[Rfam]
RNA sequence: GUCGGUCCUCGGUAGUGGCCUUCGGACCCCGUCAGCGAGACGGGCCGCGGGCUUCGAUCGAUGACCGGC
Number, nucleotide and partner (000 for none) at each position: 001g069002u068003c067004g066005g065006u064007c063008c000009u061010c060011g059012g058013u057014a000015g000016u000017g053018g052019c051020c050021u049022u000023c047024g046025g045026a000027c043028c042029c000030c000031g041032u040033c039034a000035g000036c000037g000038a000039g033040a032041c031042g028043g027044g000045c025046c024047g023048c000049g021050g020051g019052c018053u017054u000055c000056g000057a013058u012059c011060g010061a009062u000063g007064a006065c005066c004067g003068g002069c001

Actino-pnp RNA: a 69-nucleotide RNA sequence from Nocardiopsis sp. JB363. It is annotated as a cis-regulatory element.